[Rfam]
RNA sequence: UGUGCACAAUGAUGAAAGACAUGGAUUAAUCGCGUCAGGCAUGGCGCCCGAAACGCAUGAGGAAAUUUCCCAUGCUGCCUUCCUUCUGACAGCACA
Numbered sequence: 001u002g003u004g005c006a007c008a009a010u011g012a013u014g015a016a017a018g019a020c021a022u023g024g025a026u027u028a029a030u031c032g033c034g035u036c037a038g039g040c041a042u043g044g045c046g047c048c049c050g051a052a053a054c055g056c057a058u059g060a061g062g063a064a065a066u067u068u069c070c071c072a073u074g075c076u077g078c079c080u081u082c083c084u085u086c087u088g089a090c091a092g093c094a095c096a
Stems, first nucleotide, its partner, number of pairs: 001096005

Small nucleolar RNA U83B: a 96-nucleotide RNA sequence from Sinocyclocheilus anshuiensis. Its family is annotated with RNA processing and nucleolus in the Gene Ontology. Rfam describes the family as follows. U83B belongs to the C/D family of snoRNAs. U83B like U83A has no documented RNA target and they share the same host gene with the C/D box snoRNA U43 (RPL3). N.B. U83A/B/C have no sequence similarity with the U83 snoRNA that was cloned by Jady and Kiss (2000).